A member of the RNA family "c-di-GMP-I riboswitch aptamer" from Methylomonas lenta, 80 nucleotides long. Lineage of the source: Bacteria > Pseudomonadati > Pseudomonadota > Methylococcaceae > Methylomonas. Pairs were carried over by alignment from the consensus structure, which is taken from published work.

RNA sequence: CCUCUUCUUCGCCACAUUCGUCGUAAGGCGGAGCCGGAAAGCCACGGGUCUUGGAAUGAUGAGACAGCCGAGCUGCCAUU
Numbered sequence: 001c002c003u004c005u006u007c008u009u010c011g012c013c014a015c016a017u018u019c020g021u022c023g024u025a026a027g028g029c030g031g032a033g034c035c036g037g038a039a040a041g042c043c044a045c046g047g048g049u050c051u052u053g054g055a056a057u058g059a060u061g062a063g064a065c066a067g068c069c070g071a072g073c074u075g076c077c078a079u080u
Stems, first nucleotide, its partner, number of pairs: 012037002017032006040074003045070003048065006
Dot-bracket structure: ...........((...((((((....))))))...))..(((..(((((((((......))))))..))).)))......